[Rfam]
RNA sequence: CCGCAUCGGCGCGACUGGCGAGACAAGGUGGUUCCACCGGGGAGCGCGGAUUCUGCCGCGCCGCUCGCCUGGGCAUCAAAA
Numbered sequence: 001c002c003g004c005a006u007c008g009g010c011g012c013g014a015c016u017g018g019c020g021a022g023a024c025a026a027g028g029u030g031g032u033u034c035c036a037c038c039g040g041g042g043a044g045c046g047c048g049g050a051u052u053c054u055g056c057c058g059c060g061c062c063g064c065u066c067g068c069c070u071g072g073g074c075a076u077c078a079a080a081a
Stems, first nucleotide, its partner, number of pairs: 003053001005051003009047004015041002017069005028037003058076001060074003

A member of the RNA family "ZMP/ZTP riboswitch aptamer (pfl RNA motif)" from Ferrovibrio terrae, 81 nucleotides long. The base pairs follow the family's consensus structure, which is taken from published work.